[Rfam]
Nucleotides: 523
Base pairs, nucleotide, nucleotide: 004486005485006484012483014356016354017353021349022348023347247343248342249341250340251338252337254335255334259331260330261329262328265309266308269305270304271303272302273301276298280291281290282289317324318323361402362401363400364399365398366397371395375391376390377389378388413482414481415480416475417474418473420458421457422456425453426452427451428450429449430448431447432446434445435444436443462469463468488515489514490513497508498507499506500505
Number, partner (000 for none) and nucleotide at each position: 001000u002000u003000g004486c005485a006484g007000u008000u009000a010000a011000a012483a013000a014356g015000c016354u017353c018000g019000u020000a021349g022348u023347c024000g025000g026000a027000g028000g029000u030000g031000g032000g033000g034000c035000g036000u037000g038000c039000g040000g041000c042000g043000c044000g045000g046000g047000g048000c049000g050000c051000g052000c053000c054000a055000a056000u057000g058000g059000c060000g061000c062000g063000c064000g065000g066000c067000g068000c069000g070000c071000c072000a073000c074000c075000u076000u077000c078000g079000u080000c081000g082000g083000u084000g085000c086000g087000a088000g089000g090000c091000g092000g093000g094000c095000g096000g097000c098000g099000c100000u101000u102000a103000g104000u105000u106000g107000c108000g109000g110000c111000g112000g113000c114000c115000g116000g117000c118000g119000a120000g121000u122000g123000c124000c125000g126000a127000u128000u129000u130000u131000u132000a133000c134000u135000g136000u137000g138000a139000a140000a141000a142000a143000a144000u145000u146000a147000g148000a149000g150000u151000g152000u153000u154000c155000a156000a157000a158000g159000c160000a161000g162000g163000c164000g165000u166000u167000u168000g169000c170000u171000g172000u173000g174000a175000a176000u177000a178000c179000a180000u181000u182000a183000g184000c185000a186000u187000g188000g189000g190000a191000u192000a193000u194000u195000g196000g197000a198000a199000g200000a201000a202000g203000c204000u205000c206000u207000g208000g209000c210000u211000u212000a213000u214000u215000c216000g217000u218000u219000g220000g221000u222000u223000g224000g225000u226000g227000g228000g229000c230000u231000g232000g233000a234000a235000g236000c237000a238000u239000g240000g241000u242000c243000a244000a245000g246000a247343g248342g249341a250340a251338c252337g253000g254335u255334c256000g257000g258000g259331g260330g261329c262328a263000c264000u265309c266308g267000u268000a269305u270304u271303u272302c273301a274000u275000u276298g277000u278000c279000a280291g281290a282289g283000g284000u285000g286000a287000a288000a289282u290281u291280c292000u293000u294000g295000g296000a297000u298276u299000u300000u301273u302272g303271a304270a305269a306000g307000a308266c309265g310000a311000a312000c313000a314000g315000c316000u317324g318323c319000g320000a321000a322000a323318g324317c325000g326000u327000u328262u329261g330260c331259c332000a333000a334255g335254g336000a337252c338251g339000u340250u341249u342248u343247c344000a345000u346000u347023g348022a349021u350000c351000a352000a353017g354016a355000a356014c357000g358000a359000a360000a361402g362401u363400u364399a365398g366397g367000g368000g369000a370000u371395c372000g373000a374000a375391g376390a377389c378388g379000a380000u381000c382000a383000g384000a385000u386000a387000c388378c389377g390376u391375c392000g393000u394000a395371g396000u397366c398365u399364u400363a401362a402361c403000c404000a405000u406000a407000a408000a409000c410000u411000a412000u413482g414481c415480c416475g417474a418473c419000u420458g421457g422456g423000g424000a425453u426452u427451g428450g429449u430448g431447g432446a433000c434445g435444u436443u437000c438000c439000a440000a441000u442000c443436g444435a445434c446432u447431c448430c449429a450428u451427c452426a453425g454000c455000a456422c457421c458420c459000u460000a461000g462469g463468a464000g465000a466000a467000a468463u469462c470000a471000a472000a473418g474417u475416c476000u477000u478000u479000g480415g481414g482413u483012u484006c485005u486004g487000g488515g489514g490513g491000g492000a493000g494000u495000a496000u497508g498507g499506u500505c501000g502000c503000a504000a505500g506499g507498c508497u509000g510000a511000a512000a513490c514489u515488u516000a517000a518000a519000g520000g521000a522000a523000u